[Rfam]
Record summary
Rfam assigns this 130-nucleotide RNA sequence from Actinidia chinensis to the family "MIR403 microRNA precursor family". A search with the family's covariance model found it, with a score of 82 bits. A reference for the family is Mica et al. (2009), "High throughput approaches reveal splicing of primary microRNA transcripts and tissue specific expression of mature microRNAs in Vitis vinifera", BMC Genomics. Lineage of the source: Eukaryota > Streptophyta > Streptophytina > Pentapetalae > Actinidia chinensis. Rfam links the family to the GO terms RISC complex and miRNA-mediated post-transcriptional gene silencing.
RNA sequence: GCACAUCUCUAGUUUGUGCGUGAAUCCAACCCCGUCAUCGGAACCGUCCACUGCCCUUUUGGAUUCGAAUCCAUAGGCAAAAUGCCCCAUCCCACGGUGUUAGAUUCACGCACAAACUUGCGAUCUGCCU
Number, nucleotide and partner (000 for none) at each position: 001g128002c127003a126004c000005a124006u123007c122008u000009c000010u000011a118012g117013u116014u115015u114016g113017u112018g111019c110020g109021u108022g107023a106024a105025u104026c103027c000028a101029a100030c099031c000032c097033c096034g095035u094036c000037a000038u000039c000040g000041g000042a000043a000044c000045c000046g000047u000048c000049c000050a000051c000052u000053g000054c000055c000056c000057u000058u000059u000060u000061g000062g000063a000064u000065u000066c000067g000068a000069a000070u000071c000072c000073a000074u000075a000076g000077g000078c000079a000080a000081a000082a000083u000084g000085c000086c000087c000088c000089a000090u000091c000092c000093c000094a035095c034096g033097g032098u000099g030100u029101u028102a000103g026104a025105u024106u023107c022108a021109c020110g019111c018112a017113c016114a015115a014116a013117c012118u011119u000120g000121c000122g007123a006124u005125c000126u003127g002128c001129c000130u000